[Rfam]
Shown here is a 51-nucleotide sequence from Streptomyces spongiae, a member of the family "raiA-hairpin RNA". The match comes from Rfam's covariance-model search (56 bits). The base pairs follow the family's consensus structure, which is taken from published work. It is annotated as a small RNA.
RNA sequence: CACCAAGUCCGAGGCUCCGGGACGUACCGGAGCCUGGUGAUGCACAAGGGA
Numbered sequence: 001c002a003c004c005a006a007g008u009c010c011g012a013g014g015c016u017c018c019g020g021g022a023c024g025u026a027c028c029g030g031a032g033c034c035u036g037g038u039g040a041u042g043c044a045c046a047a048g049g050g051a
Stems, first nucleotide, its partner, number of pairs: 013034008